The family of this 75-nucleotide RNA sequence from Ruminococcaceae bacterium D16 is "Fluoride riboswitch aptamer (crcB RNA motif)".
The base pairs follow the family's consensus structure, which is taken from published work.
Taxonomically the source falls in Oscillospiraceae (Bacteria, Bacillati, Bacillota, Clostridia).
Gene Ontology terms of the family: response to fluoride and positive regulation of gene expression.
RNA sequence: CGCAAUAAAGGGAAUGAGGUCUCCCUUGUCCUUCGGGACUAAACCGCCUACAAGGCUGAUGGCUUCUGCGAUUUU
Numbered sequence: 001c002g003c004a005a006u007a008a009a010g011g012g013a014a015u016g017a018g019g020u021c022u023c024c025c026u027u028g029u030c031c032u033u034c035g036g037g038a039c040u041a042a043a044c045c046g047c048c049u050a051c052a053a054g055g056c057u058g059a060u061g062g063c064u065u066c067u068g069c070g071a072u073u074u075u
Stems, first nucleotide, its partner, number of pairs: 010025004016066006046056003